[Rfam]
RNA sequence: GUGCAGGUAUGGUGACAUGGUACCAAAGACCAUUGCUGGGAAGAUUUUUGGUUCUAUCUGCUCUCUGAGUGGUGUGCUGGUUAUUGCCUUGCCAGUGCCUGUGAUUGUCUCAAAU
Numbered sequence: 001g002u003g004c005a006g007g008u009a010u011g012g013u014g015a016c017a018u019g020g021u022a023c024c025a026a027a028g029a030c031c032a033u034u035g036c037u038g039g040g041a042a043g044a045u046u047u048u049u050g051g052u053u054c055u056a057u058c059u060g061c062u063c064u065c066u067g068a069g070u071g072g073u074g075u076g077c078u079g080g081u082u083a084u085u086g087c088c089u090u091g092c093c094a095g096u097g098c099c100u101g102u103g104a105u106u107g108u109c110u111c112a113a114a115u
Base pairs, nucleotide, nucleotide: 001115002114006111009108010107011106012105015102016101017100019098022096023095038078039077041075050064051063
The family of this 115-nucleotide RNA sequence from Callorhinchus milii is "Potassium channel RNA editing signal".
Rfam classes the family as a cis-regulatory element.
Rfam links the family to the GO term adenosine to inosine editing.
The match comes from Rfam's covariance-model search (83 bits).
NCBI's taxonomy places the organism under Eukaryota, Opisthokonta, Deuterostomia, Chordata, Callorhinchus.